Annotation: The family of this 179-nucleotide sequence from Oleiphilus sp. HI0079 is "6S / SsrS RNA". It scores 98 bits against the family's covariance model. By type it is a non-coding RNA gene.
[Rfam]
RNA sequence: CGUGACCUGGAAUGUUCGCCAGCCAGAUAAGUCCUCGAGCCGAUACUUUUUUAUAGGCAAGUAUUUCACGUGUUGUGUGCAUGUCCCCUUCGGCGGGAAAGCCUAAUAUACGUCAGGUAUUCGCCACCUUGAACCUUUCGGUUCAAGGCCCUAUCAGGCAGCGGCAUUUUGGGCACACU
Numbered sequence: 001c002g003u004g005a006c007c008u009g010g011a012a013u014g015u016u017c018g019c020c021a022g023c024c025a026g027a028u029a030a031g032u033c034c035u036c037g038a039g040c041c042g043a044u045a046c047u048u049u050u051u052u053a054u055a056g057g058c059a060a061g062u063a064u065u066u067c068a069c070g071u072g073u074u075g076u077g078u079g080c081a082u083g084u085c086c087c088c089u090u091c092g093g094c095g096g097g098a099a100a101g102c103c104u105a106a107u108a109u110a111c112g113u114c115a116g117g118u119a120u121u122c123g124c125c126a127c128c129u130u131g132a133a134c135c136u137u138u139c140g141g142u143u144c145a146a147g148g149c150c151c152u153a154u155c156a157g158g159c160a161g162c163g164g165c166a167u168u169u170u171g172g173g174c175a176c177a178c179u
Stems, first nucleotide, its partner, number of pairs: 006173010017163003031150001033148002037144005056125003060121006068113006079102002084098004